[Rfam]
RNA: Glycine riboswitch aptamer
Organism: Pengzhenrongella frigida
RNA sequence: CGAGCUGCGGCGGGAGAGUCCUCCCGCGCGUCGCCGGACGUUCGCCCUGAUCAGGUCCCUGAUCACGGCCCUCCGGCGGCACCGGCGAGGCGCCGAAGGAGCAACCCUCCCCGGGAAUCUCUCAGGCCCCCGUACCGCCAUGGCUAG
Numbered sequence: 001c002g003a004g005c006u007g008c009g010g011c012g013g014g015a016g017a018g019u020c021c022u023c024c025c026g027c028g029c030g031u032c033g034c035c036g037g038a039c040g041u042u043c044g045c046c047c048u049g050a051u052c053a054g055g056u057c058c059c060u061g062a063u064c065a066c067g068g069c070c071c072u073c074c075g076g077c078g079g080c081a082c083c084g085g086c087g088a089g090g091c092g093c094c095g096a097a098g099g100a101g102c103a104a105c106c107c108u109c110c111c112c113g114g115g116a117a118u119c120u121c122u123c124a125g126g127c128c129c130c131c132g133u134a135c136c137g138c139c140a141u142g143g144c145u146a147g
Base pairs, nucleotide, nucleotide: 006142007141009139010138011137012136013135020090021089022088023087092127093126094125095123096122099121100120101119105114106113